[Rfam]
RNA sequence: CUGUCGUUAUGAUGAAAUAUUCGGAUGUAAAUUCACAGACCUGUUCUGAAAGCGCAAAGCCAUGUGGAUAUUUCCGUUGCCUUCCUUCUGAUAUCGACU
Numbered sequence: 001c002u003g004u005c006g007u008u009a010u011g012a013u014g015a016a017a018u019a020u021u022c023g024g025a026u027g028u029a030a031a032u033u034c035a036c037a038g039a040c041c042u043g044u045u046c047u048g049a050a051a052g053c054g055c056a057a058a059g060c061c062a063u064g065u066g067g068a069u070a071u072u073u074c075c076g077u078u079g080c081c082u083u084c085c086u087u088c089u090g091a092u093a094u095c096g097a098c099u
Base pairs, nucleotide, nucleotide: 003098004097005096022076023075024074025073
Small nucleolar RNA Z13/snr52: a 99-nucleotide RNA from Cladophialophora immunda. Gene Ontology terms of the family: RNA processing and nucleolus. The base pairs follow the family's consensus structure, which was predicted with PFOLD. It scores 92 bits against the family's covariance model. The organism belongs to Cladophialophora, within Eukaryota.